c-di-GMP-I riboswitch aptamer: an 88-nucleotide sequence from Roseateles sp. DAIF2. The match comes from Rfam's covariance-model search (74 bits). Taxonomically the source falls in Roseateles (Bacteria, Pseudomonadota, Betaproteobacteria, Burkholderiales). Its family is annotated with cyclic-di-GMP binding in the Gene Ontology. Pairs were carried over by alignment from the consensus structure, which is taken from published work. The family is grouped with related families in Rfam's "c-di-GMP_I riboswitch clan".
[Rfam]
RNA sequence: UUCUGCAAAGGGCAAACCGCGCGAAAGCGCGGGACGCAAAGUCAACGGUCUAAAGGGCCUGUGGCCCCAUGACGGCUGGACUGCCAGA
Numbered sequence: 001u002u003c004u005g006c007a008a009a010g011g012g013c014a015a016a017c018c019g020c021g022c023g024a025a026a027g028c029g030c031g032g033g034a035c036g037c038a039a040a041g042u043c044a045a046c047g048g049u050c051u052a053a054a055g056g057g058c059c060u061g062u063g064g065c066c067c068c069a070u071g072a073c074g075g076c077u078g079g080a081c082u083g084c085c086a087g088a
Stems, first nucleotide, its partner, number of pairs: 012037002017032006040082004047076001048073003055067004
Dot-bracket structure: ...........((...((((((....))))))...))..((((...((((....((((.....))))...)))..)..))))......